[Rfam]
RNA sequence: GGCCUCCCUCUGUGGGGUGAUUAAUCGUGGGGCUCCGCGAUGGAUUGCCCAACAGAGGGUGGCC
Numbered sequence: 001g002g003c004c005u006c007c008c009u010c011u012g013u014g015g016g017g018u019g020a021u022u023a024a025u026c027g028u029g030g031g032g033c034u035c036c037g038c039g040a041u042g043g044a045u046u047g048c049c050c051a052a053c054a055g056a057g058g059g060u061g062g063c064c
Stems, first nucleotide, its partner, number of pairs: 001064004006059008015050008024041007

Notes
A member of the RNA family "mir-9242 microRNA precursor family" from Cnephaeus nilssonii, 64 nucleotides long. A search with the family's covariance model found it, with a score of 69 bits. Its family is annotated with miRNA-mediated post-transcriptional gene silencing and RISC complex in the Gene Ontology.